[Rfam]
RNA sequence: CGCAUAUUUUGCGAUGGCGGAGCUCGACCGCCGGUCGAAGUGAUGGUCGGGUUCAUCGACGAUCAGCGAGGGAAGCACGGGGCUUGGCCAUCGCGGCGCCAUCGGUCCGAGCCCGAUGGACAAGGCCGAUCUGCAGGGUUCUGCCGAUCGCCCCG
Numbered sequence: 001c002g003c004a005u006a007u008u009u010u011g012c013g014a015u016g017g018c019g020g021a022g023c024u025c026g027a028c029c030g031c032c033g034g035u036c037g038a039a040g041u042g043a044u045g046g047u048c049g050g051g052u053u054c055a056u057c058g059a060c061g062a063u064c065a066g067c068g069a070g071g072g073a074a075g076c077a078c079g080g081g082g083c084u085u086g087g088c089c090a091u092c093g094c095g096g097c098g099c100c101a102u103c104g105g106u107c108c109g110a111g112c113c114c115g116a117u118g119g120a121c122a123a124g125g126c127c128g129a130u131c132u133g134c135a136g137g138g139u140u141c142u143g144c145c146g147a148u149c150g151c152c153c154c155g
Base pairs, nucleotide, nucleotide: 016032017031018030019029020028078155079154080153081152082151089150091147092146093144094143095142096141

ALIL pseudoknot: a 155-nucleotide RNA sequence from Paracoccus sp. SM22M-07. The family has 26 seed sequences and 2,146 matches in Rfam 15.1. Taxonomically the source falls in Paracoccus (Bacteria, Pseudomonadota, Rhodobacterales, Paracoccaceae).